[Rfam]
RNA sequence: GGAAAUUUGAGAGGAGCUGUCCUUAGUACGAGAGGACCGGGAUGGACAUACCGCUGGUGUACCAGUUGUUCUGCCAAGGGCAUCGCUGGGUAGCUAUGUAUGGAAGGGAUAAGCGCUGAAAGCAUCUAAGUGCGAAGCCCCCCUCGAGAUGAGAUUUCCUUUGCGAAAGCAAUAAGACACCUCAAAGACUAUGAGGUAGAUAGGCUGGGAGUGGAAGUAGAGUGAUCUAUGGAGCGGACCAGUACUAAUCAGUCGAGA
Numbered sequence: 001g002g003a004a005a006u007u008u009g010a011g012a013g014g015a016g017c018u019g020u021c022c023u024u025a026g027u028a029c030g031a032g033a034g035g036a037c038c039g040g041g042a043u044g045g046a047c048a049u050a051c052c053g054c055u056g057g058u059g060u061a062c063c064a065g066u067u068g069u070u071c072u073g074c075c076a077a078g079g080g081c082a083u084c085g086c087u088g089g090g091u092a093g094c095u096a097u098g099u100a101u102g103g104a105a106g107g108g109a110u111a112a113g114c115g116c117u118g119a120a121a122g123c124a125u126c127u128a129a130g131u132g133c134g135a136a137g138c139c140c141c142c143c144u145c146g147a148g149a150u151g152a153g154a155u156u157u158c159c160u161u162u163g164c165g166a167a168a169g170c171a172a173u174a175a176g177a178c179a180c181c182u183c184a185a186a187g188a189c190u191a192u193g194a195g196g197u198a199g200a201u202a203g204g205c206u207g208g209g210a211g212u213g214g215a216a217g218u219a220g221a222g223u224g225a226u227c228u229a230u231g232g233a234g235c236g237g238a239c240c241a242g243u244a245c246u247a248a249u250c251a252g253u254c255g256a257g258a
Stems, first nucleotide, its partner, number of pairs: 001159008011145004017045007047102005055096003062089005067082006106140003113133005162171003173256001176254003180196005201247003204243005211235001217230005